Shown here is a 158-nucleotide RNA from Rhizobium sp. Root1212, a member of the family "6S / SsrS RNA". Taxonomically the source falls in Rhizobium (Bacteria, Pseudomonadati, Pseudomonadota, Rhizobiaceae). By type it is a non-coding RNA gene. The family's consensus secondary structure is taken from published work. E. coli 6S RNA was the first non coding RNA to be sequenced, but its function was unknown until recently.

[Rfam]
RNA sequence: UGCGGUCUGCGCUUCCCGACAGGAACCACAAUCCCUGGGGCCAUACUCGAUCCAAAGGGAGCUGUCCCUGACCAGGCCCGUGGGCUUGGACAUAUGGCGCCCACCUACGUUUGUAGGCACCCAGGAUCGUAAAUCUCCAUCGGUCGUGUGGAUCGCAC
Number, nucleotide and partner (000 for none) at each position: 001u000002g156003c155004g154005g153006u152007c151008u150009g149010c148011g147012c146013u000014u000015c143016c000017c142018g141019a140020c000021a000022g000023g000024a000025a000026c000027c000028a000029c000030a000031a000032u000033c000034c125035c124036u000037g122038g121039g120040g118041c117042c116043a000044u000045a000046c000047u000048c000049g000050a000051u000052c000053c000054a000055a000056a000057g102058g101059g100060a000061g098062c097063u096064g095065u094066c000067c000068c000069u000070g091071a000072c089073c088074a087075g086076g085077c084078c083079c000080g000081u000082g000083g078084g077085c076086u075087u074088g073089g072090a000091c070092a000093u000094a065095u064096g063097g062098c061099g000100c059101c058102c057103a000104c000105c000106u000107a000108c000109g000110u000111u000112u000113g000114u000115a000116g042117g041118c040119a000120c039121c038122c037123a000124g035125g034126a000127u000128c000129g000130u000131a000132a000133a000134u000135c000136u000137c000138c000139a000140u019141c018142g017143g015144u000145c000146g012147u011148g010149u009150g008151g007152a006153u005154c004155g003156c002157a000158c000